[Rfam]
RNA sequence: UAGAACAAUGUAGGUAAGGGAAGUCGGCAAAUUCGAUCCGUAACUUCGGGAUAAGGAUUGGCUCUGGGGGCCCCGUUCGUCGGGCUGUGUCUCCGAAGCCCUGUUUGCGUACCGUUCGGACUGGGUUCGUUCCCGGACUGAUAUGUGCCUGCGGGGUGGAAGUACGCAGUUUUUUUCGCGGAGCCCCUUCCGGGGGAACCGCGGAGGUACGACGGACGCUAUGGGGCCGACUCAGAACUGGCACGGACCCUGGGAAUCCGACUGUCUAAUUAAAACAAAGCAUUGCGAUGGUCUGCGAGAGAUGUUGACGCAAUGUGAUUUCUGCCCAGUGCUCUGAAUGUCAAAGUGAAGAAAUUCAAUGAAGCUCGGGUAAACGGCGGGAGUAACUAUGACUCUCUUAAGGUAGCCAAAUGCCUCGUCAUCUAAUUAGUGACGCGCAUGAAUGGAUUAACGAGAUUCCCAACUGUCCCUAUCUACUAUCUAGCGAAACCACAGCCAAGGGAACGGGCUUGGCA
Numbered sequence: 001u002a003g004a005a006c007a008a009u010g011u012a013g014g015u016a017a018g019g020g021a022a023g024u025c026g027g028c029a030a031a032u033u034c035g036a037u038c039c040g041u042a043a044c045u046u047c048g049g050g051a052u053a054a055g056g057a058u059u060g061g062c063u064c065u066g067g068g069g070g071c072c073c074c075g076u077u078c079g080u081c082g083g084g085c086u087g088u089g090u091c092u093c094c095g096a097a098g099c100c101c102u103g104u105u106u107g108c109g110u111a112c113c114g115u116u117c118g119g120a121c122u123g124g125g126u127u128c129g130u131u132c133c134c135g136g137a138c139u140g141a142u143a144u145g146u147g148c149c150u151g152c153g154g155g156g157u158g159g160a161a162g163u164a165c166g167c168a169g170u171u172u173u174u175u176u177c178g179c180g181g182a183g184c185c186c187c188u189u190c191c192g193g194g195g196g197a198a199c200c201g202c203g204g205a206g207g208u209a210c211g212a213c214g215g216a217c218g219c220u221a222u223g224g225g226g227c228c229g230a231c232u233c234a235g236a237a238c239u240g241g242c243a244c245g246g247a248c249c250c251u252g253g254g255a256a257u258c259c260g261a262c263u264g265u266c267u268a269a270u271u272a273a274a275a276c277a278a279a280g281c282a283u284u285g286c287g288a289u290g291g292u293c294u295g296c297g298a299g300a301g302a303u304g305u306u307g308a309c310g311c312a313a314u315g316u317g318a319u320u321u322c323u324g325c326c327c328a329g330u331g332c333u334c335u336g337a338a339u340g341u342c343a344a345a346g347u348g349a350a351g352a353a354a355u356u357c358a359a360u361g362a363a364g365c366u367c368g369g370g371u372a373a374a375c376g377g378c379g380g381g382a383g384u385a386a387c388u389a390u391g392a393c394u395c396u397c398u399u400a401a402g403g404u405a406g407c408c409a410a411a412u413g414c415c416u417c418g419u420c421a422u423c424u425a426a427u428u429a430g431u432g433a434c435g436c437g438c439a440u441g442a443a444u445g446g447a448u449u450a451a452c453g454a455g456a457u458u459c460c461c462a463a464c465u466g467u468c469c470c471u472a473u474c475u476a477c478u479a480u481c482u483a484g485c486g487a488a489a490c491c492a493c494a495g496c497c498a499a500g501g502g503a504a505c506g507g508g509c510u511u512g513g514c515a
Base pairs, nucleotide, nucleotide: 001483002482003481004480010477011476012475013474014473015472016471018469019468020467035059036058037057038056039055044049060239061238063236064235065234066233067232068231069228070227071226072225073224075217076216077215078214079213080212081211082210085169086168087167089165090164092162098157099156100155101154102153103152104151109148110147111146112145116141117140118139119138121136122135123134124133125132240244252461253460254459255458256457257456258455259453260452263277264276265275280316281315282314283313284312285311286310287309291303292302293301294300320447321446322445324378325377326376329375330374331371332370333369334368336367340365341364347358348357349356350355379397380396381395382394383393384392398402418434419433420432421431422430496513497512498511499510500509